RNA sequence: UCUUCAUUAGUAUAACGGUUAGUAUAACCGCUUCUCAAUGAUUGGAUUUAUCCAGUUUUGUUCGCGGUAGACCAGGGUUCAACUCCCUGAUGGAGAA
Dot-bracket structure: (((((((..((((........)))).(((((................................)))))....(((((.......)))))))))))).
Annotation
The record is a 97-nucleotide sequence from Cryptococcus deneoformans, which matches "tRNA" in Rfam. The match comes from Rfam's covariance-model search (49 bits). Rfam classes the family as a transfer RNA. Lineage of the source: Eukaryota > Fungi > Cryptococcaceae > Cryptococcus > Cryptococcus deneoformans.